[Rfam]
RNA sequence: AAUUCGUUGGUUUAACUCAAACCUGUUAUGAGUUAAGUUAAUGAGUCGCCAUAACCAGGUUAUCUGCCGAGAUUUGACUCCGGGUAACCUGGUAUUUUU
Numbered sequence: 001a002a003u004u005c006g007u008u009g010g011u012u013u014a015a016c017u018c019a020a021a022c023c024u025g026u027u028a029u030g031a032g033u034u035a036a037g038u039u040a041a042u043g044a045g046u047c048g049c050c051a052u053a054a055c056c057a058g059g060u061u062a063u064c065u066g067c068c069g070a071g072a073u074u075u076g077a078c079u080c081c082g083g084g085u086a087a088c089c090u091g092g093u094a095u096u097u098u099u
Stems, first nucleotide, its partner, number of pairs: 002046018054093013069080003

Shown here is a 99-nucleotide RNA sequence from Streptococcus hillyeri, a member of the family "23S methyl RNA motif".
Rfam classes the family as a cis-regulatory element.
The organism belongs to Streptococcus, within Bacteria.
The match comes from Rfam's covariance-model search (80 bits).